[Rfam]
RNA sequence: GGGUGCCCGCCGCAUAAGGCAGCGAGGCAGGUAGCAGCGUCGGUCGGGCCGCCACG
Numbered sequence: 001g002g003g004u005g006c007c008c009g010c011c012g013c014a015u016a017a018g019g020c021a022g023c024g025a026g027g028c029a030g031g032u033a034g035c036a037g038c039g040u041c042g043g044u045c046g047g048g049c050c051g052c053c054a055c056g
Base pairs, nucleotide, nucleotide: 005028006027007026008024009023010022038056039055040054042053043052044051

nhaA-I RNA: a 56-nucleotide RNA. Rfam's curators put it in the seed alignment. About the family: Acidobacteria, Alphaproteobacteria, Betaproteobacteria and Gammaproteobacteria, Verrucomicrobia, cand. division NC10.